RNA sequence: CCGUGCAGAGAUAAAAACACAGGGCGGUCGGUAGUCCGCCCGCGGGCCGCGCUCCCGUCAGUAGCCUUCCCUCCCGGGUCGUCCAUUCUCUGACGCAUGAAU
Numbered sequence: 001c002c003g004u005g006c007a008g009a010g011a012u013a014a015a016a017a018c019a020c021a022g023g024g025c026g027g028u029c030g031g032u033a034g035u036c037c038g039c040c041c042g043c044g045g046g047c048c049g050c051g052c053u054c055c056c057g058u059c060a061g062u063a064g065c066c067u068u069c070c071c072u073c074c075c076g077g078g079u080c081g082u083c084c085a086u087u088c089u090c091u092g093a094c095g096c097a098u099g100a101a102u
Stems, first nucleotide, its partner, number of pairs: 006092006022041006042058005069078003

Shown here is a 102-nucleotide RNA sequence from bacterium 1xD42-67, a member of the family "azaaromatic riboswitch aptamer (yjdF RNA)". The family's consensus secondary structure is taken from published work.